[Rfam]
RNA sequence: GCAGAGGGUAGGGCUUAGCCCACCUGUGAACAGCGUUUGGUUCCAUCAUGUUCACAGUGGCUAAGUUCCGCCACUUGG
Numbered sequence: 001g002c003a004g005a006g007g008g009u010a011g012g013g014c015u016u017a018g019c020c021c022a023c024c025u026g027u028g029a030a031c032a033g034c035g036u037u038u039g040g041u042u043c044c045a046u047c048a049u050g051u052u053c054a055c056a057g058u059g060g061c062u063a064a065g066u067u068c069c070g071c072c073a074c075u076u077g078g
Base pairs, nucleotide, nucleotide: 011068012067013066014065015064016063017062018061019060020059026055027054028053029052030051031050032049
This 78-nucleotide sequence from Podarcis muralis belongs to the Rfam family "mir-27 microRNA precursor family". Gene Ontology terms of the family: RISC complex and miRNA-mediated post-transcriptional gene silencing. The organism belongs to Podarcis, within Eukaryota. A search with the family's covariance model found it, with a score of 71 bits.